Description
Yersinia sRNA 224: a 109-nucleotide sequence from Yersinia ruckeri. It is annotated as a small RNA. The match comes from Rfam's covariance-model search (85 bits). Pairs were carried over by alignment from the consensus structure. Its family is annotated with response to temperature stimulus in the Gene Ontology. The organism belongs to Yersinia, within Bacteria.
RNA sequence: GAGGUUAAUGACAAAGUGCUCGCAGUGGUGCGCAAACAGGCAGAUCGUCAAGAUGUCGUGAAUACGUCCUGGUAGGCUCGUUCCGCGCCAUCCCUGGUGCGGACGCUUG
Numbered sequence: 001g002a003g004g005u006u007a008a009u010g011a012c013a014a015a016g017u018g019c020u021c022g023c024a025g026u027g028g029u030g031c032g033c034a035a036a037c038a039g040g041c042a043g044a045u046c047g048u049c050a051a052g053a054u055g056u057c058g059u060g061a062a063u064a065c066g067u068c069c070u071g072g073u074a075g076g077c078u079c080g081u082u083c084c085g086c087g088c089c090a091u092c093c094c095u096g097g098u099g100c101g102g103a104c105g106c107u108u109g
Base pairs, nucleotide, nucleotide: 014108015107016106017105018104020028021027022026030079032077043068044067045066047065048064053059054058083102084101085100086099087098088097089096090095